[Rfam]
Rfam assigns this 139-nucleotide RNA sequence from Flagellimonas maritima to the family "SAM riboswitch aptamer (S box leader)". Rfam describes the family as follows. The SAM riboswitch is found upstream of a number of genes which code for proteins involved in methionine or cysteine biosynthesis in Gram-positive bacteria. The organism belongs to Flagellimonas, within Bacteria.
RNA sequence: AAGUUAUCAAGAAAGGUUGAGGGAAUAGACCCUUUGAUGCCUUAGCAACCCUUAGCGUAUUCUGGUGCCUAUCAGAAUCUAAGAAGGUGCUAAAUUCUACUUUGUGCUGAAUCCAGUUCGGUAUCAUGGCAGAUAACAA
Numbered sequence: 001a002a003g004u005u006a007u008c009a010a011g012a013a014a015g016g017u018u019g020a021g022g023g024a025a026u027a028g029a030c031c032c033u034u035u036g037a038u039g040c041c042u043u044a045g046c047a048a049c050c051c052u053u054a055g056c057g058u059a060u061u062c063u064g065g066u067g068c069c070u071a072u073c074a075g076a077a078u079c080u081a082a083g084a085a086g087g088u089g090c091u092a093a094a095u096u097c098u099a100c101u102u103u104g105u106g107c108u109g110a111a112u113c114c115a116g117u118u119c120g121g122u123a124u125c126a127u128g129g130c131a132g133a134u135a136a137c138a139a
Base pairs, nucleotide, nucleotide: 003137004136005135006134007133008132013043014042015041016040017039021032022031023030026099027098028097029096044091045090046089047088049087050086051083052082053081054080095131100128102126